[Rfam]
RNA: Lysine riboswitch aptamer
Organism: Aliidiomarina haloalkalitolerans
RNA sequence: GAAACCAGAAGAGGUGCGUUACCCAGGCAAAAUACCGGAGUGUCCCGUUAUCACGGCGAAGGUAUUUGAGGGGGAGUAACGCCGAGGUUGUCAUGCGACGGGCGUCUGACAAUCGGUCAUGGGGGCUGAAUCCCUCAGGCUGUCACCCGAAGUAGCGACUACACUUAGCUGUGUAAGUUAAGAAGCUACAGUUGUAUACGGUGGAGAGCUUCUGGAGCG
Number, nucleotide and partner (000 for none) at each position: 001g000002a000003a000004a000005c000006c214007a213008g212009a211010a210011g209012a000013g000014g000015u000016g082017c081018g080019u079020u078021a077022c076023c000024c074025a000026g000027g000028c000029a000030a067031a066032a065033u064034a063035c062036c061037g000038g000039a000040g000041u000042g000043u000044c000045c000046c000047g000048u000049u000050a000051u000052c000053a000054c000055g000056g000057c000058g000059a000060a000061g036062g035063u034064a033065u032066u031067u030068g000069a000070g000071g000072g000073g000074g024075a000076g022077u021078a020079a019080c018081g017082c016083c000084g000085a000086g114087g113088u112089u111090g110091u109092c108093a107094u000095g105096c104097g103098a000099c000100g000101g000102g000103c097104g096105u095106c000107u093108g092109a091110c090111a089112a088113u087114c086115g141116g140117u139118c138119a000120u137121g136122g135123g134124g133125g132126c000127u000128g000129a000130a000131u000132c125133c124134c123135u122136c121137a120138g118139g117140c116141u115142g000143u204144c203145a202146c201147c200148c000149g000150a000151a000152g000153u000154a000155g000156c000157g000158a000159c000160u000161a000162c000163a000164c000165u000166u000167a000168g000169c000170u000171g000172u000173g000174u000175a000176a000177g000178u000179u000180a000181a000182g000183a000184a000185g000186c000187u000188a000189c000190a000191g000192u000193u000194g000195u000196a000197u000198a000199c000200g147201g146202u145203g144204g143205a000206g000207a000208g000209c011210u010211u009212c008213u007214g006215g000216a000217g000218c000219g000